[Rfam]
RNA sequence: UAAGCCUUUAACACAGCCCCGUGAGGCUGAGAAGGAAACGGUUGAAGAAAUGGGCAAUUUGUGCCCUUCUUCGGAGGAUCCUCUCGCGUGCGUGGCGGGAGGAUUUUUUUAU
Numbered sequence: 001u002a003a004g005c006c007u008u009u010a011a012c013a014c015a016g017c018c019c020c021g022u023g024a025g026g027c028u029g030a031g032a033a034g035g036a037a038a039c040g041g042u043u044g045a046a047g048a049a050a051u052g053g054g055c056a057a058u059u060u061g062u063g064c065c066c067u068u069c070u071u072c073g074g075a076g077g078a079u080c081c082u083c084u085c086g087c088g089u090g091c092g093u094g095g096c097g098g099g100a101g102g103a104u105u106u107u108u109u110u111a112u
Base pairs, nucleotide, nucleotide: 005035006034007033008032009031014029015028016027017026018025044072045071046070047069048068049067054065057062075107076106077105078104079103080102081101082100083099084098085097086096087095

PyrR binding site: a 112-nucleotide RNA sequence from Ectobacillus ponti. The family's consensus secondary structure is taken from published work. The organism belongs to Ectobacillus, within Bacteria. Rfam classes the family as a cis-regulatory element. The match comes from Rfam's covariance-model search (56 bits).